RNA sequence: CUCCACUACUGCGACAUAGUCGUACGGUAAAUGUUGUGUAUGGAGUCCAAUGUUAACUGUAAGACUGUGUCUUAGUGGUGGGA
Numbered sequence: 001c002u003c004c005a006c007u008a009c010u011g012c013g014a015c016a017u018a019g020u021c022g023u024a025c026g027g028u029a030a031a032u033g034u035u036g037u038g039u040a041u042g043g044a045g046u047c048c049a050a051u052g053u054u055a056a057c058u059g060u061a062a063g064a065c066u067g068u069g070u071c072u073u074a075g076u077g078g079u080g081g082g083a
Stems, first nucleotide, its partner, number of pairs: 003081009013071009023061006030054007